Rfam assigns this 197-nucleotide RNA sequence from Sodalis ligni to the family "GcvB RNA".
From the family's description: The gcvB gene encodes a small untranslated RNA involved in expression of the dipeptide and oligopeptide transport systems in Escherichia coli. Included several unknown homologues in alignment (Bateman A pers obs). It base-pairs with SorC. This interaction triggers the degradation of GcvB by RNase E, alleviating the GcvB-mediated mRNA repression of other amino acid-related transport and metabolic genes.
RNA sequence: CACCGGUGAGCCGGAACGAAAAGGUAUGCGGGUUCUUGAAUGUUGGGGAGUCCGGAUGGCUUUUGGCUUGCCGAGUGAUGUUGUGUUUGCAGAUUUGGCCUGGAUUCAGGCCGCUUUAAUUACUCCUUGGCAUUUCUGUACAUUUCUCUGUCUGUCCCUAGUGAAUAUGUAGCACCGCGGAAGCGGUGCUUUUUUAU
Numbered sequence: 001c002a003c004c005g006g007u008g009a010g011c012c013g014g015a016a017c018g019a020a021a022a023g024g025u026a027u028g029c030g031g032g033u034u035c036u037u038g039a040a041u042g043u044u045g046g047g048g049a050g051u052c053c054g055g056a057u058g059g060c061u062u063u064u065g066g067c068u069u070g071c072c073g074a075g076u077g078a079u080g081u082u083g084u085g086u087u088u089g090c091a092g093a094u095u096u097g098g099c100c101u102g103g104a105u106u107c108a109g110g111c112c113g114c115u116u117u118a119a120u121u122a123c124u125c126c127u128u129g130g131c132a133u134u135u136c137u138g139u140a141c142a143u144u145u146c147u148c149u150g151u152c153u154g155u156c157c158c159u160a161g162u163g164a165a166u167a168u169g170u171a172g173c174a175c176c177g178c179g180g181a182a183g184c185g186g187u188g189c190u191u192u193u194u195u196a197u
Stems, first nucleotide, its partner, number of pairs: 009068004015064002021062003025058003029054009096113007140170004171190008